[Rfam]
RNA sequence: AAAAAAGCAGGGUCUUGUUGCCUUUUGUGGACGAGGCUCUCGUAAACUUCAGGAAAAUUGCUUGCAUUGUUAUUGGGUGAACCUCUGUUUUCAUGUGGUGACUGAAGGUUCAGUAAAUGAUGCCACAUUU
Numbered sequence: 001a002a003a004a005a006a007g008c009a010g011g012g013u014c015u016u017g018u019u020g021c022c023u024u025u026u027g028u029g030g031a032c033g034a035g036g037c038u039c040u041c042g043u044a045a046a047c048u049u050c051a052g053g054a055a056a057a058u059u060g061c062u063u064g065c066a067u068u069g070u071u072a073u074u075g076g077g078u079g080a081a082c083c084u085c086u087g088u089u090u091u092c093a094u095g096u097g098g099u100g101a102c103u104g105a106a107g108g109u110u111c112a113g114u115a116a117a118u119g120a121u122g123c124c125a126c127a128u129u130u
Stems, first nucleotide, its partner, number of pairs: 005049003011038002014035004065122007078112007
RNA: Small nucleolar RNA snoR74
Organism: Theobroma umbraticum